Record summary:
Shown here is a 141-nucleotide RNA sequence from Cyclopterus lumpus, a member of the family "U4 spliceosomal RNA". From the family's description: U4 small nuclear RNA (U4 snRNA) is a component of the major U2-dependent spliceosome. Lineage of the source: Eukaryota > Eumetazoa > Chordata > Vertebrata > Cyclopterus. It is annotated as a spliceosomal small nuclear RNA. Clan: U4 clan.
RNA sequence: AUCCCUUCGCAGAGGCAAUUUCAUAGUCGAGGAAGUUGUACUGAGACGUGAUUAUUGCUAGUUGAAAACUUAACCCGAUACCCCGCCGAGAUGACUUGAAAUAUAGUCAGCUAUGGCAAUUUUUGCCAGUCUCUAAGGAGA
Numbered sequence: 001a002u003c004c005c006u007u008c009g010c011a012g013a014g015g016c017a018a019u020u021u022c023a024u025a026g027u028c029g030a031g032g033a034a035g036u037u038g039u040a041c042u043g044a045g046a047c048g049u050g051a052u053u054a055u056u057g058c059u060a061g062u063u064g065a066a067a068a069c070u071u072a073a074c075c076c077g078a079u080a081c082c083c084c085g086c087c088g089a090g091a092u093g094a095c096u097u098g099a100a101a102u103a104u105a106g107u108c109a110g111c112u113a114u115g116g117c118a119a120u121u122u123u124u125g126c127c128a129g130u131c132u133c134u135a136a137g138g139a140g141a
Stems, first nucleotide, its partner, number of pairs: 021051004026047003034042003085117003089112002092109005130141004